[Rfam]
RNA: mir-160 microRNA precursor family
RNA sequence: AUAUGCCUGGCUCCCUGUAUGCCACUCGCGUAGCUGCCAACUCUUCGUGUUUGGUCUUCAAUUCGUGUUGUUGGCUCUACCGCGGAUGGCGUGCGAGGAGCCAAGCAUGA
Numbered sequence: 001a002u003a004u005g006c007c008u009g010g011c012u013c014c015c016u017g018u019a020u021g022c023c024a025c026u027c028g029c030g031u032a033g034c035u036g037c038c039a040a041c042u043c044u045u046c047g048u049g050u051u052u053g054g055u056c057u058u059c060a061a062u063u064c065g066u067g068u069u070g071u072u073g074g075c076u077c078u079a080c081c082g083c084g085g086a087u088g089g090c091g092u093g094c095g096a097g098g099a100g101c102c103a104a105g106c107a108u109g110a
Stems, first nucleotide, its partner, number of pairs: 002109005008103007016095009027084003